[Rfam]
RNA sequence: GUAGGCAGGUGAUGAAUGUUUUAAAAUACUUAUCCUACACUCUGAAAAUUCAUGUAGAUUACAAAUUUUCUCAAUUUCUGAUGCCUAU
Numbered sequence: 001g002u003a004g005g006c007a008g009g010u011g012a013u014g015a016a017u018g019u020u021u022u023a024a025a026a027u028a029c030u031u032a033u034c035c036u037a038c039a040c041u042c043u044g045a046a047a048a049u050u051c052a053u054g055u056a057g058a059u060u061a062c063a064a065a066u067u068u069u070c071u072c073a074a075u076u077u078c079u080g081a082u083g084c085c086u087a088u
Base pairs, nucleotide, nucleotide: 003086004085005084006083007082
This 88-nucleotide sequence from Chenopodium quinoa belongs to the Rfam family "Small nucleolar RNA R16". Rfam 15.1 lists 884 matches to the family in 222 species. Gene Ontology terms of the family: nucleolus and RNA processing. Lineage of the source: Eukaryota > Viridiplantae > Gunneridae > Pentapetalae > Chenopodium. The match comes from Rfam's covariance-model search (47 bits). Rfam classes the family as a C/D-box small nucleolar RNA.